Notes:
Shown here is a 118-nucleotide sequence from Aquamicrobium lusatiense, a member of the family "Alphaproteobacterial ar14". The family's RNA type in Rfam is small RNA. Lineage of the source: Bacteria > Pseudomonadati > Alphaproteobacteria > Phyllobacteriaceae > Aquamicrobium. Smr14C2 was renamed NfeR1 (Nodule Formation Efficiency RNA) highly expressed in salt stress and during the symbiotic interaction on legume roots.
RNA sequence: AAGUUUCGUCGAAGCCUACCUCCUCCCGGGCGACGACGAUUGGUCGAUCUCCUCCUCCUCCCUUGAUCGACCACCCUAACGACACCCGCCGGACCUCCUCCCCCGGCGGGUGUUGUCG
Numbered sequence: 001a002a003g004u005u006u007c008g009u010c011g012a013a014g015c016c017u018a019c020c021u022c023c024u025c026c027c028g029g030g031c032g033a034c035g036a037c038g039a040u041u042g043g044u045c046g047a048u049c050u051c052c053u054c055c056u057c058c059u060c061c062c063u064u065g066a067u068c069g070a071c072c073a074c075c076c077u078a079a080c081g082a083c084a085c086c087c088g089c090c091g092g093a094c095c096u097c098c099u100c101c102c103c104c105g106g107c108g109g110g111u112g113u114u115g116u117c118g
Base pairs, nucleotide, nucleotide: 007038008037009036011034014031015030016029041073042072043071044070045069046068047067048066049065082113083112084111085110086109087108088107089106090105091104092103